[Rfam]
RNA sequence: UUGGGCUUACUUGAACAUGAUCUGUUCUAUAGGCUCGGACCGCUGCAUCAUUUACCAACAAGGAGGCAAGCACUUCAGUCUGCUUGAUGCAUUCUGUCUCUGGGCCAGAGCGUGAUUAACGGCCAGGAUUUUCCUGAUGGGGCAAUCCGAUGGCUGUAGAGGAUCGUUCCUGCCUGGCUCUCACGCCUGUGUCGGGUGGCCCAGAGGUUGUCUGACAGACU
Numbered sequence: 001u002u003g004g005g006c007u008u009a010c011u012u013g014a015a016c017a018u019g020a021u022c023u024g025u026u027c028u029a030u031a032g033g034c035u036c037g038g039a040c041c042g043c044u045g046c047a048u049c050a051u052u053u054a055c056c057a058a059c060a061a062g063g064a065g066g067c068a069a070g071c072a073c074u075u076c077a078g079u080c081u082g083c084u085u086g087a088u089g090c091a092u093u094c095u096g097u098c099u100c101u102g103g104g105c106c107a108g109a110g111c112g113u114g115a116u117u118a119a120c121g122g123c124c125a126g127g128a129u130u131u132u133c134c135u136g137a138u139g140g141g142g143c144a145a146u147c148c149g150a151u152g153g154c155u156g157u158a159g160a161g162g163a164u165c166g167u168u169c170c171u172g173c174c175u176g177g178c179u180c181u182c183a184c185g186c187c188u189g190u191g192u193c194g195g196g197u198g199g200c201c202c203a204g205a206g207g208u209u210g211u212c213u214g215a216c217a218g219a220c221u
Stems, first nucleotide, its partner, number of pairs: 001038002003035001006032002013027005044068003048064002051061002078220005096208012109168004119157006126148005131142004169195002172192002174189001176187002

Record summary:
Shown here is a 221-nucleotide sequence from Triticum aestivum, a member of the family "Plant small nucleolar RNA U3". The family is grouped with related families in Rfam's "U3 clan". Rfam's curators write: Small nucleolar RNAs (snoRNAs) are involved in the processing and modification of rRNA in the nucleolus. There are two main classes of snoRNAs: the box C/D class, and the box H/ACA class. U3 snoRNA is a member of the box C/D class. Indeed, the box C/D element is a subset of the six short sequence elements found in all U3 snoRNAs, namely boxes A, A', B, C, C', and D. The U3 snoRNA secondary structure is characterised by a small 5' domain (with boxes A and A'), and a larger 3' domain (with boxes B, C, C', and D), the two domains being linked by a single-stranded hinge. The family's consensus secondary structure is taken from published work. Its family is annotated with RNA processing and nucleolus in the Gene Ontology. A reference for the family is Zwieb (1997), "The uRNA database", Nucleic Acids Res. The match comes from Rfam's covariance-model search (136 bits).